RNA sequence: CUCUUAUCAAGAGAGGUGGAGGGACUGGCCCGAUGAAACCCGGCAACCAGCCUUAGGGCAUGGUGCCAAUUCCUGCAGCGGUUUCGCUGAAAGAUGAGAG
Dot-bracket structure: ((((((((....(.(((...(((.[.[[)))......))))((((.((.(((....)))..))))))...(]].](((((....)))))..)))))))))

The record is a 100-nucleotide RNA from Caldanaerobacter subterraneus, which matches "SAM riboswitch aptamer (S box leader)" in Rfam. The organism belongs to Caldanaerobacter subterraneus subsp. tengcongensis, within Bacteria. About the family: The SAM riboswitch is found upstream of a number of genes which code for proteins involved in methionine or cysteine biosynthesis in Gram-positive bacteria.